RT-14 RNA: a 148-nucleotide RNA sequence from Alkaliphilus metalliredigens. The source organism's lineage runs through Bacteria, Clostridia, Natronincolaceae, Alkaliphilus and Alkaliphilus metalliredigens. The family's consensus secondary structure is taken from published work. The match comes from Rfam's covariance-model search (65 bits).
RNA sequence: CUCAUUUUCAUCGCCAGAAGGCAAGAUUCCCAAGGGAGCUUGCACAGUGCAUGGAAAAUAAGGGGUCCAUUUCCCUGCCUAAAAGGCAAAAAAAUAUAUUGCUAUGGAAAUAGCUAGUAGGUUUAUUCUCGAAGAGUAUUACACAUAG
Numbered sequence: 001c002u003c004a005u006u007u008u009c010a011u012c013g014c015c016a017g018a019a020g021g022c023a024a025g026a027u028u029c030c031c032a033a034g035g036g037a038g039c040u041u042g043c044a045c046a047g048u049g050c051a052u053g054g055a056a057a058a059u060a061a062g063g064g065g066u067c068c069a070u071u072u073c074c075c076u077g078c079c080u081a082a083a084a085g086g087c088a089a090a091a092a093a094a095u096a097u098a099u100u101g102c103u104a105u106g107g108a109a110a111u112a113g114c115u116a117g118u119a120g121g122u123u124u125a126u127u128c129u130c131g132a133a134g135a136g137u138a139u140u141a142c143a144c145a146u147a148g
Base pairs, nucleotide, nucleotide: 005057006056007055008054009053013050014049021043022042023041024040025039027037028036077087078086079085080084102148103147104146105145106144109140110139111138112137120130121129